RNA sequence: CGACUUGAUAGAGGCGCGGGGAAGAAGAAUCGCGGGCGAGCCGGCAGGCAGAGACCCCGCAGAGAGGCGACCCCGCCGAACUCGACUGCCUGGGCACAGGCGCCGGGUGGGUCCGCGGGAAAUACCUGCGGGACUGUCUGCAAGAGUCUGCAGGAGCGCUAUCAGCCAA
Numbered sequence: 001c002g003a004c005u006u007g008a009u010a011g012a013g014g015c016g017c018g019g020g021g022a023a024g025a026a027g028a029a030u031c032g033c034g035g036g037c038g039a040g041c042c043g044g045c046a047g048g049c050a051g052a053g054a055c056c057c058c059g060c061a062g063a064g065a066g067g068c069g070a071c072c073c074c075g076c077c078g079a080a081c082u083c084g085a086c087u088g089c090c091u092g093g094g095c096a097c098a099g100g101c102g103c104c105g106g107g108u109g110g111g112u113c114c115g116c117g118g119g120a121a122a123u124a125c126c127u128g129c130g131g132g133a134c135u136g137u138c139u140g141c142a143a144g145a146g147u148c149u150g151c152a153g154g155a156g157c158g159c160u161a162u163c164a165g166c167c168a169a
Stems, first nucleotide, its partner, number of pairs: 006164006016076006024068001032060005080108005087102005109135002112132008137154006